[Rfam]
Overview:
mir-9/mir-79 microRNA precursor family: a 77-nucleotide RNA from Anisakis simplex. It scores 71 bits against the family's covariance model. Pairs were carried over by alignment from the consensus structure, which was predicted with RNAalifold.
RNA sequence: UUGCAUUUCUCUUUGGUUAUCUGGCUGUAUGAGUGAUCUGUAACGUCAUAAAGCUAGGUUACCAAAGCUAAGAGCAA
Number, nucleotide and partner (000 for none) at each position: 001u077002u076003g075004c074005a000006u000007u071008u070009c000010u000011c067012u066013u065014u064015g063016g062017u061018u000019a059020u058021c057022u056023g055024g054025c053026u052027g000028u050029a049030u048031g047032a046033g000034u000035g000036a000037u000038c000039u000040g000041u000042a000043a000044c000045g000046u032047c031048a030049u029050a028051a000052a026053g025054c024055u023056a022057g021058g020059u019060u000061a017062c016063c015064a014065a013066a012067g011068c000069u000070a008071a007072g000073a000074g004075c003076a002077a001